[Rfam]
RNA sequence: CGCCCGAGGGCGCGUCGCUUCAUACCUCCCUGUUGGACUUGGCCGAGCGUUAUGCUCGGCCUUUUUU
Numbered sequence: 001c002g003c004c005c006g007a008g009g010g011c012g013c014g015u016c017g018c019u020u021c022a023u024a025c026c027u028c029c030c031u032g033u034u035g036g037a038c039u040u041g042g043c044c045g046a047g048c049g050u051u052a053u054g055c056u057c058g059g060c061c062u063u064u065u066u067u
Stems, first nucleotide, its partner, number of pairs: 001017002004014001041061008

Rfam assigns this 67-nucleotide sequence from Sulfitobacter mediterraneus to the family "Singlet oxygen resistance RNA X". About the family: SorX (RSs2461)like SorY is a singlet oxygen induced sRNA that counteracts oxidative stress by targeting mRNA for a transporter in Rhodobacter. It also has an impact on resistance against organic hydroperoxides. The literature on the family includes a 2016 paper in RNA Biol by Peng et al., "Regulation of a polyamine transporter by the conserved 3' UTR-derived sRNA SorX confers resistance to singlet oxygen and organic hydroperoxides in Rhodobacter sphaeroides". The pairing is the family consensus, mapped onto this sequence. It is annotated as a small RNA. NCBI's taxonomy places the organism under Bacteria, Alphaproteobacteria, Rhodobacterales, Roseobacteraceae, Sulfitobacter.